[Rfam]
RNA sequence: AAAACCCUACAAUGUACGUGGAAACCCUGGGAGUUUUGAGCCAACACCAAAACUUUUGGAGCCUGGGCUCUGGCUGUGACUUGUAUGCCUCAUCAUUGAGGAAACAUAAAGCAGUCAGGAGGGCACCACCGUGCUGAGCCAGGUUCAGACACCGGGUCCCACGGCAUCUGUGGGGUUUUG
Numbered sequence: 001a002a003a004a005c006c007c008u009a010c011a012a013u014g015u016a017c018g019u020g021g022a023a024a025c026c027c028u029g030g031g032a033g034u035u036u037u038g039a040g041c042c043a044a045c046a047c048c049a050a051a052a053c054u055u056u057u058g059g060a061g062c063c064u065g066g067g068c069u070c071u072g073g074c075u076g077u078g079a080c081u082u083g084u085a086u087g088c089c090u091c092a093u094c095a096u097u098g099a100g101g102a103a104a105c106a107u108a109a110a111g112c113a114g115u116c117a118g119g120a121g122g123g124c125a126c127c128a129c130c131g132u133g134c135u136g137a138g139c140c141a142g143g144u145u146c147a148g149a150c151a152c153c154g155g156g157u158c159c160c161a162c163g164g165c166a167u168c169u170g171u172g173g174g175g176u177u178u179u180g
Stems, first nucleotide, its partner, number of pairs: 002178010012167004017163003033150003037147006057128003061124004068118001071117007083105002088101004
RNA: 6S / SsrS RNA